Source information
Shown here is a 73-nucleotide RNA from Melghirimyces thermohalophilus, a member of the family "tRNA". Rfam links the family to the GO term triplet codon-amino acid adaptor activity. It is annotated as a transfer RNA. Lineage of the source: Bacteria > Bacillota > Caryophanales > Thermoactinomycetaceae > Melghirimyces. The match comes from Rfam's covariance-model search (72 bits).
[Rfam]
RNA sequence: GCUGAUGUAGCUCAGCUGGCAGAGCACUUCACUCGUAAUGAAGGGGUCGGGGGUUCGAAUCCCUCCAUCAGCA
Numbered sequence: 001g002c003u004g005a006u007g008u009a010g011c012u013c014a015g016c017u018g019g020c021a022g023a024g025c026a027c028u029u030c031a032c033u034c035g036u037a038a039u040g041a042a043g044g045g046g047u048c049g050g051g052g053g054u055u056c057g058a059a060u061c062c063c064u065c066c067a068u069c070a071g072c073a
Stems, first nucleotide, its partner, number of pairs: 001072007010025004027043005049065005